[Rfam]
RNA sequence: UGAUGACAGUCUCCGGAAUCACUGUUACGCUUUGAUGAAGACCCCUUUACGUGCUUGGCUGAGGAGUCAAU
Numbered sequence: 001u002g003a004u005g006a007c008a009g010u011c012u013c014c015g016g017a018a019u020c021a022c023u024g025u026u027a028c029g030c031u032u033u034g035a036u037g038a039a040g041a042c043c044c045c046u047u048u049a050c051g052u053g054c055u056u057g058g059c060u061g062a063g064g065a066g067u068c069a070a071u
Stems, first nucleotide, its partner, number of pairs: 002071001004069003
Background:
Small nucleolar RNA MBII-202: a 71-nucleotide RNA sequence from Equus caballus. Lineage of the source: Eukaryota > Vertebrata > Theria > Perissodactyla > Equus. It is one of the family's seed sequences. Rfam classes the family as a C/D-box small nucleolar RNA.